Background: Small nucleolar RNA R16: a 90-nucleotide sequence from Carnegiea gigantea. A reference for the family is Galardi et al. (2002), "Purified box C/D snoRNPs are able to reproduce site-specific 2'-O-methylation of target RNA in vitro", Mol Cell Biol. Its family is annotated with nucleolus and RNA processing in the Gene Ontology. Pairs were carried over by alignment from the consensus structure, which was predicted with PFOLD. By type it is a C/D-box small nucleolar RNA. A search with the family's covariance model found it, with a score of 69 bits. Lineage of the source: Eukaryota > Streptophytina > Pentapetalae > Cactineae > Carnegiea.

[Rfam]
RNA sequence: GUGGGCAAUUGAUGUUAAACAUUUUUACUUAUGCUACACACUGAAAAUUCGAUGUCGAGUAUAAAACUCCGCUUAUUAUCUGAUGCCCAU
Number, nucleotide and partner (000 for none) at each position: 001g000002u000003g088004g087005g086006c085007a084008a000009u000010u000011g000012a000013u000014g000015u000016u000017a000018a000019a000020c000021a000022u000023u000024u000025u000026u000027a000028c000029u000030u000031a000032u000033g000034c000035u000036a000037c000038a000039c000040a000041c000042u000043g000044a000045a000046a000047a000048u000049u000050c000051g000052a000053u000054g000055u000056c000057g000058a000059g000060u000061a000062u000063a000064a000065a000066a000067c000068u000069c000070c000071g000072c000073u000074u000075a000076u000077u000078a000079u000080c000081u000082g000083a000084u007085g006086c005087c004088c003089a000090u000